[Rfam]
RNA sequence: UACGUUCAUCCCUAUGGGACGGAAGUAAGGAAACUGAAGGAACGCACC
Numbered sequence: 001u002a003c004g005u006u007c008a009u010c011c012c013u014a015u016g017g018g019a020c021g022g023a024a025g026u027a028a029g030g031a032a033a034c035u036g037a038a039g040g041a042a043c044g045c046a047c048c
Stems, first nucleotide, its partner, number of pairs: 003044005009019004022045001028035002

Rfam assigns this 48-nucleotide RNA sequence to the family "Glutamine riboswitch aptamer (glnA leader)". The sequence is in the family's curated seed alignment. For this family Rfam cites "Bacterial aptamers that selectively bind glutamine" (Ames and Breaker, RNA Biol, 2011). Pairs were carried over by alignment from the consensus structure, which is taken from published work.